[Rfam]
RNA sequence: GUCCGCACCGCGCCGAGCGAACAUCGGCGGCGCACUGGUCGGACCUCGGGGUGAAGCCGCUCCGGCGGCCGGGCAACCUUCCCGCCCGAACCCGACAGCUAACCUCGCAGGCGUGCCGGAGGGAUUUC
Number, nucleotide and partner (000 for none) at each position: 001g000002u000003c000004c000005g000006c000007a000008c000009c000010g000011c113012g112013c111014c110015g000016a000017g000018c026019g025020a024021a000022c000023a000024u020025c019026g018027g108028c107029g106030g105031c000032g103033c000034a000035c000036u048037g047038g046039u000040c000041g000042g000043a000044c000045c000046u038047c037048g036049g093050g092051g091052u000053g000054a000055a000056g000057c068058c067059g066060c065061u000062c000063c000064g000065g060066c059067g058068g057069c000070c000071g087072g086073g085074c084075a000076a000077c000078c000079u000080u000081c000082c000083c000084g074085c073086c072087c071088g000089a000090a000091c051092c050093c049094g000095a000096c000097a000098g000099c000100u000101a000102a000103c032104c000105u030106c029107g028108c027109a000110g014111g013112c012113g011114u000115g000116c000117c000118g000119g000120a000121g000122g000123g000124a000125u000126u000127u000128c000
RNA: c-di-AMP riboswitch aptamer (ydaO/yuaA leader)